[Rfam]
RNA sequence: GACAAUUAAAUCAGCAUUCCUUAUAUAUAUGUGGAAAGAUGGCCCACACGUUUCUACCCAGCUGCCGAGAAAAGCUGGACUAUAAGGAGAGAAUCGCGCGGC
Numbered sequence: 001g002a003c004a005a006u007u008a009a010a011u012c013a014g015c016a017u018u019c020c021u022u023a024u025a026u027a028u029a030u031g032u033g034g035a036a037a038g039a040u041g042g043c044c045c046a047c048a049c050g051u052u053u054c055u056a057c058c059c060a061g062c063u064g065c066c067g068a069g070a071a072a073a074g075c076u077g078g079a080c081u082a083u084a085a086g087g088a089g090a091g092a093a094u095c096g097c098g099c100g101g102c
Stems, first nucleotide, its partner, number of pairs: 018088008030048005058078006
This 102-nucleotide RNA sequence from Halobacillus salinus belongs to the Rfam family "Purine riboswitch aptamer". Pairs were carried over by alignment from the consensus structure, which is taken from published work. Gene Ontology term of the family: purine nucleobase biosynthetic process. Taxonomically the source falls in Halobacillus (Bacteria, Bacillota, Bacilli, Bacillaceae).